[Rfam]
A member of the RNA family "Eukaryotic small subunit ribosomal RNA" from Magallana gigas, 539 nucleotides of a longer RNA. Its Rfam clan is "SSU clan". The family's consensus secondary structure is taken from published work.
RNA sequence: CAGUUAAAAAGCUCGUAGCUGGAUCUCGGGUCCAGGCUGGCGGUCCGCCUCGUUGCGGUCACUGCCUGUCCUGACCCAACCUCUCGGUUGUAAACCCUUGGUGCUCUUGACUGAGUUGCUUCGGGUGGCCGAAACUUUUACUUUGAAAAAAUUAGAGUGUUCAAAGCAGGCGCUUCGCCUGUACAAUGGUGCAUGGAAUAAUGGAAUAGGACCUCGGUUCUAUUUUGUUGGUUUUCGGAACACGAGGUAAUGAUUAAGAGGGACUGACGGGGGCAUUCGUAUGGCGGGGUUAGAGGUGAAAUUCUUGGAUCCUCGCCAGACGGCCUACAGCGAAAGCAUUUGCCAAGCAUGUUUUCAUUAGUCAAGAACGAAAGUCAGAGGUUCGAAGACGAUCAGAUACCGUCGUAGUUCUGACCAUAAACGAUGCCAACUAGCAAUCCGCCGGAGUUGCUUCAAUGACUCGGCGAGCAGCCCCCCGGGAAACCAAAGUCUUUGGGUUCCGGGGGGAGUAUGGUUGCAAAGCUGAAACUUAAAGGAAU
Numbered sequence: 001c002a003g004u005u006a007a008a009a010a011g012c013u014c015g016u017a018g019c020u021g022g023a024u025c026u027c028g029g030g031u032c033c034a035g036g037c038u039g040g041c042g043g044u045c046c047g048c049c050u051c052g053u054u055g056c057g058g059u060c061a062c063u064g065c066c067u068g069u070c071c072u073g074a075c076c077c078a079a080c081c082u083c084u085c086g087g088u089u090g091u092a093a094a095c096c097c098u099u100g101g102u103g104c105u106c107u108u109g110a111c112u113g114a115g116u117u118g119c120u121u122c123g124g125g126u127g128g129c130c131g132a133a134a135c136u137u138u139u140a141c142u143u144u145g146a147a148a149a150a151a152u153u154a155g156a157g158u159g160u161u162c163a164a165a166g167c168a169g170g171c172g173c174u175u176c177g178c179c180u181g182u183a184c185a186a187u188g189g190u191g192c193a194u195g196g197a198a199u200a201a202u203g204g205a206a207u208a209g210g211a212c213c214u215c216g217g218u219u220c221u222a223u224u225u226u227g228u229u230g231g232u233u234u235u236c237g238g239a240a241c242a243c244g245a246g247g248u249a250a251u252g253a254u255u256a257a258g259a260g261g262g263a264c265u266g267a268c269g270g271g272g273g274c275a276u277u278c279g280u281a282u283g284g285c286g287g288g289g290u291u292a293g294a295g296g297u298g299a300a301a302u303u304c305u306u307g308g309a310u311c312c313u314c315g316c317c318a319g320a321c322g323g324c325c326u327a328c329a330g331c332g333a334a335a336g337c338a339u340u341u342g343c344c345a346a347g348c349a350u351g352u353u354u355u356c357a358u359u360a361g362u363c364a365a366g367a368a369c370g371a372a373a374g375u376c377a378g379a380g381g382u383u384c385g386a387a388g389a390c391g392a393u394c395a396g397a398u399a400c401c402g403u404c405g406u407a408g409u410u411c412u413g414a415c416c417a418u419a420a421a422c423g424a425u426g427c428c429a430a431c432u433a434g435c436a437a438u439c440c441g442c443c444g445g446a447g448u449u450g451c452u453u454c455a456a457u458g459a460c461u462c463g464g465c466g467a468g469c470a471g472c473c474c475c476c477c478g479g480g481a482a483a484c485c486a487a488a489g490u491c492u493u494u495g496g497g498u499u500c501c502g503g504g505g506g507g508a509g510u511a512u513g514g515u516u517g518c519a520a521a522g523c524u525g526a527a528a529c530u531u532a533a534a535g536g537a538a539u
Stems, first nucleotide, its partner, number of pairs: 001502001003500001009499001011369001013367002018362003260356004264351001268347001272344004278322002282318008293304003330337002374415006384408001388404004426498003430490002434472002438468001440466006447460003478485002504531003513524004